Rfam assigns this 96-nucleotide RNA sequence from Papaver nudicaule to the family "Small nucleolar RNA Z43".
Rfam classes the family as a C/D-box small nucleolar RNA.
The source organism's lineage runs through Eukaryota, Streptophyta, Ranunculales, Papaveraceae and Papaver.
It scores 49 bits against the family's covariance model.
On this family, see Chen et al., Nucleic Acids Res 2003: "The high diversity of snoRNAs in plants: identification and comparative study of 120 snoRNA genes from Oryza sativa".
RNA sequence: UGGCAAUGAUGAUAUGUGUGAUGGUCUCGUUCGUGGUAUUGGCUGUUUAAUCGCGUCCUUGCCGACCACUCUAUAUCUCACCACCCAUCUGAGUUU
Numbered sequence: 001u002g003g004c005a006a007u008g009a010u011g012a013u014a015u016g017u018g019u020g021a022u023g024g025u026c027u028c029g030u031u032c033g034u035g036g037u038a039u040u041g042g043c044u045g046u047u048u049a050a051u052c053g054c055g056u057c058c059u060u061g062c063c064g065a066c067c068a069c070u071c072u073a074u075a076u077c078u079c080a081c082c083a084c085c086c087a088u089c090u091g092a093g094u095u096u
Base pairs, nucleotide, nucleotide: 002095003094004093045060047055